[Rfam]
RNA sequence: AUAAUUCUUCGGGGCUGGGUGAAAUUCCCGACCGGCGGUGAUGAGAAUAUCUCUAAGCCCGUGACCCACGUCUAUUUGAUGUGGUGGAUUUGGUGAAAAACCAAAGCCGACAGUGAAAGUCUGGAUGGGAGAAGAAUAGG
Numbered sequence: 001a002u003a004a005u006u007c008u009u010c011g012g013g014g015c016u017g018g019g020u021g022a023a024a025u026u027c028c029c030g031a032c033c034g035g036c037g038g039u040g041a042u043g044a045g046a047a048u049a050u051c052u053c054u055a056a057g058c059c060c061g062u063g064a065c066c067c068a069c070g071u072c073u074a075u076u077u078g079a080u081g082u083g084g085u086g087g088a089u090u091u092g093g094u095g096a097a098a099a100a101c102c103a104a105a106g107c108c109g110a111c112a113g114u115g116a117a118a119g120u121c122u123g124g125a126u127g128g129g130a131g132a133a134g135a136a137u138a139g140g
Stems, first nucleotide, its partner, number of pairs: 004137007017029003031120002033109002035062004057107002066084002089105005111123003